SAM riboswitch aptamer (S box leader): a 99-nucleotide RNA sequence from Pedobacter hartonius.

RNA sequence: UACUUAUCCAGAAAGACUGAGGGAAAGGCCCUGUGACGUCUUAGCAACCUGUAUUUAACAAGGUGCUAAAUCCUUCCGCUAAUAGCGGAUAGAUAAGAU
Dot-bracket structure: ..((((((....(((((...(((.[[[[)))......)))))((((.(((((.....))).))))))...(]]]](((((...)))))..)))))))..